[Rfam]
Nucleotides: 113
Stems, first nucleotide, its partner, number of pairs: 001077005008071002012034007019026002035067004040062010085108005091102003
Number, partner (000 for none) and nucleotide at each position: 001077a002076u003075c004074c005073c006000g007000c008071u009070c010000g011000u012034c013033g014032g015031c016030g017029c018028c019026c020025c021000c022000g023000u024000g025020g026019g027000a028018g029017g030016c031015g032014u033013c034012g035067c036066a037065a038064g039000a040062g041061c042060c043059c044058u045057c046056g047055c048054g049053c050000a051000c052000g053049g054048c055047g056046u057045g058044a059043g060042g061041g062040c063000c064038c065037u066036u067035g068000a069000a070009g071008a072000c073005g074004g075003g076002a077001u078000c079000a080000a081000u082000u083000u084000c085108g086107c087106a088105a089104c090000a091102g092101g093100g094000a095000a096000c097000u098000u099000a100093c101092c102091c103000g104089g105088u106087u107086g108085c109000u110000c111000c112000u113000u
About this RNA:
Rfam assigns this 113-nucleotide RNA sequence from Orthohepacivirus hominis to the family "J750 non-coding RNA (containing SLSL761 and SL783)". On this family, see Romero-Lopez and Berzal-Herranz, Int J Mol Sci 2020: "The Role of the RNA-RNA Interactome in the Hepatitis C Virus Life Cycle". The family's RNA type in Rfam is cis-regulatory element.